Nucleotides: 134
Base pairs, nucleotide, nucleotide: 009083010082011081012080013026014025015024016023017022027055028054030052032050033049034048035047036046037045038044058077059076060075061074062073102132104130105129107128108127109126111124113123114122115121116120
Number, partner (000 for none) and nucleotide at each position: 001000a002000a003000a004000a005000a006000g007000g008000a009083c010082u011081u012080c013026u014025g015024u016023u017022g018000u019000g020000a021000g022017u023016g024015g025014c026013a027055c028054a029000u030052g031000u032050a033049g034048g035047g036046c037045a038044g039000c040000u041000c042000c043000a044038u045037u046036g047035c048034u049033c050032u051000u052030c053000u054028u055027g056000c057000a058077g059076a060075a061074u062073c063000g064000a065000c066000a067000u068000c069000a070000a071000g072000a073062g074061a075060u076059u077058u078000c079000a080012g081011a082010a083009g084000c085000a086000u087000a088000a089000u090000u091000u092000u093000u094000u095000g096000g097000u098000a099000c100000c101000u102132g103000u104130g105129c106000a107128a108127c109126u110000a111124g112000u113123g114122a115121u116120c117000a118000u119000u120116g121115g122114u123113c124111c125000c126109a127108g128107u129105g130104c131000c132102c133000c134000c